[Rfam]
RNA sequence: AUGAACUACUAGGGGUGUCCAUAAAUUUUGGACUGAGAGAAAGGUAAAAACCUUUUAACCCUCAUGAACCUGAUCUGGCUCAUACCAGCGUAGGAAAGUAGUCACGUAACAGU
Number, nucleotide and partner (000 for none) at each position: 001a000002u000003g000004a000005a000006c101007u100008a099009c098010u097011a062012g061013g060014g059015g000016u000017g033018u032019c031020c030021a029022u000023a000024a000025a000026u000027u000028u000029u021030g020031g019032a018033c017034u000035g000036a000037g000038a000039g000040a055041a054042a053043g052044g051045u000046a000047a000048a000049a000050a000051c044052c043053u042054u041055u040056u000057a000058a000059c014060c013061c012062u011063c000064a000065u000066g000067a000068a000069c094070c093071u092072g091073a000074u000075c088076u087077g086078g085079c000080u000081c000082a000083u000084a000085c078086c077087a076088g075089c000090g000091u072092a071093g070094g069095a000096a000097a010098g009099u008100a007101g006102u000103c000104a000105c000106g000107u000108a000109a000110c000111a000112g000113u000